RNA sequence: GGCCAAAAUUUGAAGUAGAGUAGAUUAGAUGGAUCAUCUGACCCUACUAGAGUACUCUACUUCAAGAUUGUGCCC
Numbered sequence: 001g002g003c004c005a006a007a008a009u010u011u012g013a014a015g016u017a018g019a020g021u022a023g024a025u026u027a028g029a030u031g032g033a034u035c036a037u038c039u040g041a042c043c044c045u046a047c048u049a050g051a052g053u054a055c056u057c058u059a060c061u062u063c064a065a066g067a068u069u070g071u072g073c074c075c
Stems, first nucleotide, its partner, number of pairs: 001074003006069002009066001011064012025050004032043001034041002